The record is a 124-nucleotide RNA sequence from Brassica cretica, which matches "MIR9563 microRNA precursor family" in Rfam. The family's consensus secondary structure was predicted with RNAalifold.
RNA sequence: GGAAUAUAAGAAUCAGUCUCUUAACUUUUAACUAAAAAAGCUAGGAACUGUCUCUUAAAAAGAGUUCUAAAAAACGGUUCUUAACUUUUUUAGUUAAAAGUUAAGAAUCAGGUUCUUAUAUUCC
Numbered sequence: 001g002g003a004a005u006a007u008a009a010g011a012a013u014c015a016g017u018c019u020c021u022u023a024a025c026u027u028u029u030a031a032c033u034a035a036a037a038a039a040g041c042u043a044g045g046a047a048c049u050g051u052c053u054c055u056u057a058a059a060a061a062g063a064g065u066u067c068u069a070a071a072a073a074a075c076g077g078u079u080c081u082u083a084a085c086u087u088u089u090u091u092a093g094u095u096a097a098a099a100g101u102u103a104a105g106a107a108u109c110a111g112g113u114u115c116u117u118a119u120a121u122u123c124c
Base pairs, nucleotide, nucleotide: 001124002123003122004121005120006119007118008117009116010115011114012113013112014111016109019106020105021104022103023102024101025100026099027098028097029096030095031094032093033092034091035090036089037088038087039086042083043082044081045080046079047078